[Rfam]
RNA sequence: AUGUUAUCAAGAAAGGCCGAGGGAUUAGACCCGUUGAAGCCUUAGCAACCCUUUGAAUUCAUCAAAGAAGGUGCUACAUUCUACUAAUAAACGCGAUUCAUUUAUCGGGUGUUAGAUAGAUAACCA
Numbered sequence: 001a002u003g004u005u006a007u008c009a010a011g012a013a014a015g016g017c018c019g020a021g022g023g024a025u026u027a028g029a030c031c032c033g034u035u036g037a038a039g040c041c042u043u044a045g046c047a048a049c050c051c052u053u054u055g056a057a058u059u060c061a062u063c064a065a066a067g068a069a070g071g072u073g074c075u076a077c078a079u080u081c082u083a084c085u086a087a088u089a090a091a092c093g094c095g096a097u098u099c100a101u102u103u104a105u106c107g108g109g110u111g112u113u114a115g116a117u118a119g120a121u122a123a124c125c126a
Stems, first nucleotide, its partner, number of pairs: 003124006013043005021032003026083004044075004049071002051067004079118001084115006
The record is a 126-nucleotide RNA from Subsaximicrobium wynnwilliamsii, which matches "SAM riboswitch aptamer (S box leader)" in Rfam. The match comes from Rfam's covariance-model search (74 bits). Pairs were carried over by alignment from the consensus structure, which is taken from published work. Taxonomically the source falls in Subsaximicrobium (Bacteria, Pseudomonadati, Bacteroidota, Flavobacteriaceae).